[Rfam]
RNA sequence: UACUACCAAACCCUAUCUCCACCUCCACCUGGUGACUGCUGGGAGCUCUUUCUUAAUGAAAAGCUGCAGACGAGAAGGAAGG
Numbered sequence: 001u002a003c004u005a006c007c008a009a010a011c012c013c014u015a016u017c018u019c020c021a022c023c024u025c026c027a028c029c030u031g032g033u034g035a036c037u038g039c040u041g042g043g044a045g046c047u048c049u050u051u052c053u054u055a056a057u058g059a060a061a062a063g064c065u066g067c068a069g070a071c072g073a074g075a076a077g078g079a080a081g082g
Stems, first nucleotide, its partner, number of pairs: 012082003016078003020074001021033003045067002049063003053059001
drz-agam-1 ribozyme: an 82-nucleotide RNA sequence from Hermetia illucens. The literature on the family includes a 2009 paper in Science by Webb et al., "Widespread occurrence of self-cleaving ribozymes". Gene Ontology term of the family: catalytic activity.